A member of the RNA family "Plastid-rpl16 group II-D1 intron" from Cuscuta europaea, 47 nucleotides long.
About the family: Plastid-rpl16 is a non-coding RNA (ncRNA) recognised in plastids. It was recognised in and intronic region of a ribosome rpl16 gene.
Rfam links the family to the GO term Group II intron splicing.
For this family Rfam cites "Retrograde signaling in plants: A critical review focusing on the GUN pathway and beyond" (Richter et al., Plant Commun, 2023).
The source organism's lineage runs through Eukaryota, Streptophyta, Gunneridae, Convolvulaceae and Cuscuta subgen. Cuscuta.
[Rfam]
RNA sequence: AAGAGCUUCAAGCCAAUAAAAACUGAGAAGAUUGACUGAAGACUGAA
Numbered sequence: 001a002a003g004a005g006c007u008u009c010a011a012g013c014c015a016a017u018a019a020a021a022a023c024u025g026a027g028a029a030g031a032u033u034g035a036c037u038g039a040a041g042a043c044u045g046a047a
Base pairs, nucleotide, nucleotide: 007041008040011037012036014034015033016032017031